[Rfam]
RNA: Small nucleolar RNA snoR8a
Organism: Theobroma cacao
RNA sequence: AUGGAAUUAGCGAUGAUUAUAAAAAUAAUUUCUUGUUCUAACUUAUUUAAUUUGGACAUGAUAAACCUCUUAUUACAACCAUAGAAUCUGAGCUCC
Numbered sequence: 001a002u003g004g005a006a007u008u009a010g011c012g013a014u015g016a017u018u019a020u021a022a023a024a025a026u027a028a029u030u031u032c033u034u035g036u037u038c039u040a041a042c043u044u045a046u047u048u049a050a051u052u053u054g055g056a057c058a059u060g061a062u063a064a065a066c067c068u069c070u071u072a073u074u075a076c077a078a079c080c081a082u083a084g085a086a087u088c089u090g091a092g093c094u095c096c
Base pairs, nucleotide, nucleotide: 003096004095009094010093